[Rfam]
RNA: sRNA-Xcc1
Nucleotides: 087
Base pairs, nucleotide, nucleotide: 002078003077004076005075006074007073008072009071012046013045014044015043017041027036028035029034048063049062050061051060052059
Number, partner (000 for none) and nucleotide at each position: 001000a002078g003077c004076c005075g006074g007073g008072u009071g010000u011000c012046g013045g014044c015043c016000g017041u018000c019000a020000u021000g022000c023000a024000a025000g026000a027036c028035c029034c030000u031000c032000a033000c034029g035028g036027g037000g038000a039000a040000a041017g042000c043015g044014g045013c046012c047000g048063g049062c050061c051060g052059u053000c054000u055000c056000g057000u058000u059052g060051c061050g062049g063048u064000g065000u066000u067000c068000a069000a070000g071009c072008a073007c074006c075005c076004g077003g078002c079000g080000c081000c082000c083000g084000a085000a086000c087000c